[Rfam]
RNA sequence: GCGAUGAGCUAAUUUGCGUAAGUCGGAAAGUCUGCUGUUUGGCAGAACGUCUGGAUGUGGCCAGACGGCUUUCCGCCGCAAAAUACGUCAGAAAAAGCUGUCAUGGAGGGAAUAUU
Numbered sequence: 001g002c003g004a005u006g007a008g009c010u011a012a013u014u015u016g017c018g019u020a021a022g023u024c025g026g027a028a029a030g031u032c033u034g035c036u037g038u039u040u041g042g043c044a045g046a047a048c049g050u051c052u053g054g055a056u057g058u059g060g061c062c063a064g065a066c067g068g069c070u071u072u073c074c075g076c077c078g079c080a081a082a083a084u085a086c087g088u089c090a091g092a093a094a095a096a097g098c099u100g101u102c103a104u105g106g107a108g109g110g111a112a113u114a115u116u
Stems, first nucleotide, its partner, number of pairs: 014081005024075008034043002048067002051064003092116002097113001099111001101109002
A member of the RNA family "BsrF" from Bacillus sp. PK3_68, 116 nucleotides long. The organism belongs to Bacillus, within Bacteria. The literature on the family includes a 2008 paper in Gene by Saito et al., "Novel small RNA-encoding genes in the intergenic regions of Bacillus subtilis". It is annotated as a small RNA.